[Rfam]
RNA: mir-393 microRNA precursor family
Organism: Tetracentron sinense
RNA sequence: AGAGGAGGAAUUCAAAGGGACUGCAUGAUCCAAAAAUUCAAUUCAGAGUAAGCUAUGAAGGCGAGUUGGGAUCAAUGCGAUCCCUUUGGAUGCCUCCUC
Numbered sequence: 001a002g003a004g005g006a007g008g009a010a011u012u013c014a015a016a017g018g019g020a021c022u023g024c025a026u027g028a029u030c031c032a033a034a035a036a037u038u039c040a041a042u043u044c045a046g047a048g049u050a051a052g053c054u055a056u057g058a059a060g061g062c063g064a065g066u067u068g069g070g071a072u073c074a075a076u077g078c079g080a081u082c083c084c085u086u087u088g089g090a091u092g093c094c095u096c097c098u099c
Base pairs, nucleotide, nucleotide: 002099003098004097005096006095008093010091011090012089013088014087015086016085017084018083019082020081023078024077025076026074027073028072029071030070031069035066
Dot-bracket structure: .(((((.(.(((((((((((..(((((((((...(..............................)..)))))).)))..))))))))))).).)))))